[Rfam]
RNA: Small nucleolar RNA SNORA13
Organism: Anguilla anguilla
RNA sequence: UGCCUUUAAGUGUUGCCUGUUCAUUCCACCUGUAAUGAAUUGUGGUGUCAGCAAAGGCAUACAGUAUCUCUUGUGGUGGCCUUACGGAGGCAGUGACAGUGGCCUUUAUUUCGGGACACGACAAGCACAUUA
Numbered sequence: 001u002g003c004c005u006u007u008a009a010g011u012g013u014u015g016c017c018u019g020u021u022c023a024u025u026c027c028a029c030c031u032g033u034a035a036u037g038a039a040u041u042g043u044g045g046u047g048u049c050a051g052c053a054a055a056g057g058c059a060u061a062c063a064g065u066a067u068c069u070c071u072u073g074u075g076g077u078g079g080c081c082u083u084a085c086g087g088a089g090g091c092a093g094u095g096a097c098a099g100u101g102g103c104c105u106u107u108a109u110u111u112c113g114g115g116a117c118a119c120g121a122c123a124a125g126c127a128c129a130u131u132a
Stems, first nucleotide, its partner, number of pairs: 002058006011050002014047004018042001019040007070125004074120001076119003080115001085114001087112004092107001095103001